[Rfam]
Rfam assigns this 99-nucleotide RNA sequence from Anaerolinea thermolimosa to the family "Glycine riboswitch aptamer". NCBI's taxonomy places the organism under Bacteria, Chloroflexota, Anaerolineae, Anaerolineaceae, Anaerolinea. A search with the family's covariance model found it, with a score of 63 bits. This family represents the bacterial glycine riboswitch.
RNA sequence: CCGAUCAACCGGGAAGAGAUUCCUCAUUUUUGAGGAACACCGAAGGGGCAAACCUGUCUACCAGGCGAAUCUCUCAGGUAAAAGGACCCGGUUAUGAAC
Numbered sequence: 001c002c003g004a005u006c007a008a009c010c011g012g013g014a015a016g017a018g019a020u021u022c023c024u025c026a027u028u029u030u031u032g033a034g035g036a037a038c039a040c041c042g043a044a045g046g047g048g049c050a051a052a053c054c055u056g057u058c059u060a061c062c063a064g065g066c067g068a069a070u071c072u073c074u075c076a077g078g079u080a081a082a083a084g085g086a087c088c089c090g091g092u093u094a095u096g097a098a099c
Base pairs, nucleotide, nucleotide: 007093008092009091010090011089012088013087020037021036022035023034039079040078041077042075043074046073047072048071053065054064055063